This 97-nucleotide RNA sequence from Jannaschia aquimarina belongs to the Rfam family "Bacterial small signal recognition particle RNA". It is annotated as a non-coding RNA gene. The signal recognition particle (SRP) is a universally conserved ribonucleoprotein involved in the co-translational targeting of proteins to membranes. A search with the family's covariance model found it, with a score of 60 bits.

RNA sequence: GAGAGGUUGGCACGGGCGAGCGCCCCGCCAACCUGGUCAGGUCCGGAAGGAAGCAGCCACAACGGGUCCCGCUCGGGUCGUUGUCCAGCCUCUCACC
Numbered sequence: 001g002a003g004a005g006g007u008u009g010g011c012a013c014g015g016g017c018g019a020g021c022g023c024c025c026c027g028c029c030a031a032c033c034u035g036g037u038c039a040g041g042u043c044c045g046g047a048a049g050g051a052a053g054c055a056g057c058c059a060c061a062a063c064g065g066g067u068c069c070c071g072c073u074c075g076g077g078u079c080g081u082u083g084u085c086c087a088g089c090c091u092c093u094c095a096c097c
Base pairs, nucleotide, nucleotide: 004091005090006089007088008087009084012081013080014079017075018074019073020072021071022070024066025065026064027063034059035058036057037056042051043050044049
Dot-bracket structure: ...((((((..(((..((((((.((((......((((....(((....)))....))))...))))...))))))...)))..)..)))))......